Source information:
The family of this 56-nucleotide RNA from Gluconacetobacter johannae is "nhaA-I RNA".
RNA sequence: GGGUGUCCGCCGCAGGGUGCGGCGCGGCAGGCUUGUGCGUUGGUCGGGCCGCCACG
Numbered sequence: 001g002g003g004u005g006u007c008c009g010c011c012g013c014a015g016g017g018u019g020c021g022g023c024g025c026g027g028c029a030g031g032c033u034u035g036u037g038c039g040u041u042g043g044u045c046g047g048g049c050c051g052c053c054a055c056g
Base pairs, nucleotide, nucleotide: 005028006027007026008024009023010022011021038056039055040054042053043052044051
The source organism's lineage runs through Bacteria, Pseudomonadota, Alphaproteobacteria, Acetobacterales and Gluconacetobacter. Pairs were carried over by alignment from the consensus structure, which is taken from published work. Rfam's curators write: Acidobacteria, Alphaproteobacteria, Betaproteobacteria and Gammaproteobacteria, Verrucomicrobia, cand. division NC10.